[Rfam]
RNA sequence: GUAGUCGGAUUCGCAUCAAUUCACAUGUGUUGGGGUGGAUUGGAGUGGAACUUGAACUAAAUUCCACCCUAAUCCACCCCAUCACAUGUGGAUUGAGGUGCAUCUAACA
Dot-bracket structure: ...((.((((.(((.((((((((((((((.((..(((((((((.(((.................))).)))))))))..)).)))))))))))))).))).)))).)).
Shown here is a 109-nucleotide RNA from Miscanthus lutarioriparius, a member of the family "MIR5565 microRNA precursor family". Rfam links the family to the GO terms miRNA-mediated post-transcriptional gene silencing and RISC complex. A search with the family's covariance model found it, with a score of 107 bits. The organism belongs to Miscanthus, within Eukaryota. Pairs were carried over by alignment from the consensus structure, which was predicted with RNAalifold.